[Rfam]
RNA: Bacterial small signal recognition particle RNA
Organism: Ligilactobacillus salivarius
RNA sequence: GCCUUGAGGCAAUGUUGUCUUUGUGAAGCGUGUCAGGUCCGGAAGGAAGCAGCACUAAGCAGAGUUCGCAUGUGCCUUAAGUUAAU
Numbered sequence: 001g002c003c004u005u006g007a008g009g010c011a012a013u014g015u016u017g018u019c020u021u022u023g024u025g026a027a028g029c030g031u032g033u034c035a036g037g038u039c040c041g042g043a044a045g046g047a048a049g050c051a052g053c054a055c056u057a058a059g060c061a062g063a064g065u066u067c068g069c070a071u072g073u074g075c076c077u078u079a080a081g082u083u084a085a086u
Stems, first nucleotide, its partner, number of pairs: 004080006010072001012071004017066001019064006030055004038047003